[Rfam]
RNA sequence: AGACAUCUGUUCCUCUGACGAGGCCUCUUUUACUUCGUCAGAUUUCAGAACGUCUUAGAAUAAAACUGGAUUGCUUCACCCAGAACUGUAUUUUCAAUUACAUUGUUUGGCUUUUGCGGAUUCAUACAAUA
Numbered sequence: 001a002g003a004c005a006u007c008u009g010u011u012c013c014u015c016u017g018a019c020g021a022g023g024c025c026u027c028u029u030u031u032a033c034u035u036c037g038u039c040a041g042a043u044u045u046c047a048g049a050a051c052g053u054c055u056u057a058g059a060a061u062a063a064a065a066c067u068g069g070a071u072u073g074c075u076u077c078a079c080c081c082a083g084a085a086c087u088g089u090a091u092u093u094u095c096a097a098u099u100a101c102a103u104u105g106u107u108u109g110g111c112u113u114u115u116g117c118g119g120a121u122u123c124a125u126a127c128a129a130u131a
Stems, first nucleotide, its partner, number of pairs: 001055004006050001008048001014042005020036004068123005080110005085104001087102003
Dot-bracket structure: ((((.(.(.....(((((.((((.........)))).))))).....).).))))............(((((.......((((((.(((..........))).).)))))........)))))........

Shown here is a 131-nucleotide RNA from Trachymyrmex cornetzi, a member of the family "Small nucleolar RNA SNORA79".
By type it is an H/ACA-box small nucleolar RNA.
Rfam's curators write: ACA65 (SNORA79) is a member of the H/ACA class of snoRNAs that guide the sites of modification of uridines to pseudouridines. This snoRNA was identified by computational screening and its expression in mouse experimentally verified by Northern blot and primer extension analysis.
The match comes from Rfam's covariance-model search (64 bits).
The organism belongs to Trachymyrmex, within Eukaryota.